[Rfam]
RNA sequence: GGCUAGUCCGAAGGUAGUGAGUUAUCACAAUUGAUUGUUCACAGUCAGUUACAGAUCGAUAUCCCUGUUCUCUCUUCCUCCCACCUUCUCACUACCGUAUUUGACUAGUCUUUU
Numbered sequence: 001g002g003c004u005a006g007u008c009c010g011a012a013g014g015u016a017g018u019g020a021g022u023u024a025u026c027a028c029a030a031u032u033g034a035u036u037g038u039u040c041a042c043a044g045u046c047a048g049u050u051a052c053a054g055a056u057c058g059a060u061a062u063c064c065c066u067g068u069u070c071u072c073u074c075u076u077c078c079u080c081c082c083a084c085c086u087u088c089u090c091a092c093u094a095c096c097g098u099a100u101u102u103g104a105c106u107a108g109u110c111u112u113u114u
Stems, first nucleotide, its partner, number of pairs: 001110008010102002014098002016093006043075002047071002
RNA: Y RNA